RNA sequence: UUCUUUCAUGGGGGACCAGAUUUAGGUACCACCCCAGUACUGACCCAUUUUUGACGGCCCAUGUAUUUCGUACAUUCCUGCUAGUCAACAUGAAUAUCACCCG
Numbered sequence: 001u002u003c004u005u006u007c008a009u010g011g012g013g014g015a016c017c018a019g020a021u022u023u024a025g026g027u028a029c030c031a032c033c034c035c036a037g038u039a040c041u042g043a044c045c046c047a048u049u050u051u052u053g054a055c056g057g058c059c060c061a062u063g064u065a066u067u068u069c070g071u072a073c074a075u076u077c078c079u080g081c082u083a084g085u086c087a088a089c090a091u092g093a094a095u096a097u098c099a100c101c102c103g
Stems, first nucleotide, its partner, number of pairs: 005094006012086002017080003022036001025033003037055002061075005